[Rfam]
The family of this 97-nucleotide RNA sequence from Pueribacillus theae is "Guanidine-I riboswitch aptamer". A search with the family's covariance model found it, with a score of 86 bits. The organism belongs to Pueribacillus, within Bacteria. The pairing is the family consensus, mapped onto this sequence. A reference for the family is Barrick et al. (2004), "New RNA motifs suggest an expanded scope for riboswitches in bacterial genetic control", Proc Natl Acad Sci U S A.
RNA sequence: AUAAUUGUUUUCUAGGGUUCCGCAGCUUUGCCUGGACUGGUCCGAGAGAAAACGCACGGUUUACCUGUGUACACGGAGGGAUAAAAGCCCGGGAGGA
Number, nucleotide and partner (000 for none) at each position: 001a000002u000003a000004a000005u000006u000007g053008u052009u051010u050011u049012c048013u000014a000015g043016g042017g000018u000019u000020c040021c039022g037023c034024a033025g032026c000027u000028u000029u000030g000031c000032c025033u024034g023035g000036a000037c022038u000039g021040g020041u000042c016043c015044g000045a000046g000047a000048g012049a011050a010051a009052a008053c007054g070055c069056a068057c067058g066059g065060u000061u000062u000063a000064c000065c059066u058067g057068u056069g055070u054071a000072c092073a000074c095075g000076g000077a000078g090079g089080g088081a000082u000083a000084a000085a000086a000087g000088c080089c079090c078091g000092g072093g000094a000095g074096g000097a000